[Rfam]
Small nucleolar RNA SNORA47: a 129-nucleotide RNA from Helopsaltes ochotensis. Its family is annotated with nucleolus and RNA processing in the Gene Ontology. Rfam 15.1 lists 733 matches to the family in 635 species. The source organism's lineage runs through Eukaryota, Opisthokonta, Dipnotetrapodomorpha, Saurischia and Helopsaltes. By type it is an H/ACA-box small nucleolar RNA. The match comes from Rfam's covariance-model search (85 bits).

RNA sequence: UGGAGGACUGAGAAAGUAAGACAGUUAAACUUCGUGCUGUAUCUUACUGGUUAUAGCCUCCAAAAUUAUAAUAGUGCAAUAGCAACUCAUGUUCCCCUUCUGACAUGAGGGAAAGCAGUAGUGCAUUUG
Numbered sequence: 001u002g003g004a005g006g007a008c009u010g011a012g013a014a015a016g017u018a019a020g021a022c023a024g025u026u027a028a029a030c031u032u033c034g035u036g037c038u039g040u041a042u043c044u045u046a047c048u049g050g051u052u053a054u055a056g057c058c059u060c061c062a063a064a065a066u067u068a069u070a071a072u073a074g075u076g077c078a079a080u081a082g083c084a085a086c087u088c089a090u091g092u093u094c095c096c097c098u099u100c101u102g103a104c105a106u107g108a109g110g111g112a113a114a115g116c117a118g119u120a121g122u123g124c125a126u127u128u129g
Stems, first nucleotide, its partner, number of pairs: 002061005015048004019042001021040005082122002085119003093113001095111003099108002